The family of this 35-nucleotide RNA from Castor canadensis is "Iron response element I". A search with the family's covariance model found it, with a score of 36 bits.
RNA sequence: CUGUUUCUUGCUUCAACAGCGUUUGGAUGGCACAG
Numbered sequence: 001c002u003g004u005u006u007c008u009u010g011c012u013u014c015a016a017c018a019g020c021g022u023u024u025g026g027a028u029g030g031c032a033c034a035g
Stems, first nucleotide, its partner, number of pairs: 001035003005032001007030002010028001012027005017021001

The organism belongs to Castor, within Eukaryota. On this family, see Hentze et al., Science 1987: "Identification of the iron-responsive element for the translational regulation of human ferritin mRNA". The family has 62 seed sequences and 6,829 matches in Rfam 15.1.